[Rfam]
RNA: ROOL RNA
RNA sequence: UAAUUACUACCACCAUAUUAUUAACCAUGUGUAUAAAUACAAUAUCAUGUAUCAUGGAGUUAUUCAGAAGAGCUGUCAAGCACAAGGAUACUUUUGUAAGGCAACUUUGUAUGUAUAGUAAUAUAUAUGCAAGAGAUGUAAAAAUCAAUUAAAGGGUAACGUGCAAAAUAAAAUCGCUUAAUAAUGUACUAGAGUUGUCGCAGCCAUAAUAGACGACACAGUGUGUAAUAAGCCUAUAAGUGUACUGUAGCAAGGUAUAACCAAUGUAGGUAAAGCUAUAAUAAGGCUGUUUCUCGUGAUGUGUAGUAAAAUACACUAUAAGACAUAACUAGGUUAAAGUAGCUCAAUCGAGAUAAUUACAGGAUAUUUAAAAGAUAUUAGCAAUUAUCUUACAAACAUCUGAAUGAUGGGUGAAAUUUAUGAGUAAUCAAUCUCAUAUGUGCAUUGACAAGGGUAAGAAGUAUUAGGUCGCUCCGAAAUACUCAGACUUACUUUCACAGUGACAGAAUAAUUAAGAAGAUAAUAUUUUGUAAGGCGAAGGUCUAAUAAUAUUAUAUAUCUAGA
Numbered sequence: 001u002a003a004u005u006a007c008u009a010c011c012a013c014c015a016u017a018u019u020a021u022u023a024a025c026c027a028u029g030u031g032u033a034u035a036a037a038u039a040c041a042a043u044a045u046c047a048u049g050u051a052u053c054a055u056g057g058a059g060u061u062a063u064u065c066a067g068a069a070g071a072g073c074u075g076u077c078a079a080g081c082a083c084a085a086g087g088a089u090a091c092u093u094u095u096g097u098a099a100g101g102c103a104a105c106u107u108u109g110u111a112u113g114u115a116u117a118g119u120a121a122u123a124u125a126u127a128u129g130c131a132a133g134a135g136a137u138g139u140a141a142a143a144a145u146c147a148a149u150u151a152a153a154g155g156g157u158a159a160c161g162u163g164c165a166a167a168a169u170a171a172a173a174u175c176g177c178u179u180a181a182u183a184a185u186g187u188a189c190u191a192g193a194g195u196u197g198u199c200g201c202a203g204c205c206a207u208a209a210u211a212g213a214c215g216a217c218a219c220a221g222u223g224u225g226u227a228a229u230a231a232g233c234c235u236a237u238a239a240g241u242g243u244a245c246u247g248u249a250g251c252a253a254g255g256u257a258u259a260a261c262c263a264a265u266g267u268a269g270g271u272a273a274a275g276c277u278a279u280a281a282u283a284a285g286g287c288u289g290u291u292u293c294u295c296g297u298g299a300u301g302u303g304u305a306g307u308a309a310a311a312u313a314c315a316c317u318a319u320a321a322g323a324c325a326u327a328a329c330u331a332g333g334u335u336a337a338a339g340u341a342g343c344u345c346a347a348u349c350g351a352g353a354u355a356a357u358u359a360c361a362g363g364a365u366a367u368u369u370a371a372a373a374g375a376u377a378u379u380a381g382c383a384a385u386u387a388u389c390u391u392a393c394a395a396a397c398a399u400c401u402g403a404a405u406g407a408u409g410g411g412u413g414a415a416a417u418u419u420a421u422g423a424g425u426a427a428u429c430a431a432u433c434u435c436a437u438a439u440g441u442g443c444a445u446u447g448a449c450a451a452g453g454g455u456a457a458g459a460a461g462u463a464u465u466a467g468g469u470c471g472c473u474c475c476g477a478a479a480u481a482c483u484c485a486g487a488c489u490u491a492c493u494u495u496c497a498c499a500g501u502g503a504c505a506g507a508a509u510a511a512u513u514a515a516g517a518a519g520a521u522a523a524u525a526u527u528u529u530g531u532a533a534g535g536c537g538a539a540g541g542u543c544u545a546a547u548a549a550u551a552u553u554a555u556a557u558a559u560c561u562a563g564a
Stems, first nucleotide, its partner, number of pairs: 009559001015553001019549001022546001025057005038051004059160006071106002074103003080097003084093003107132011135146003139143001167528002171524001179515001181513001185511001189332004196325004200290006216226004232271006240261002242258001244256003248278004292353004301316005336417001342412005399487004424434001439499003452495003457490002461483001463480003467475002533544004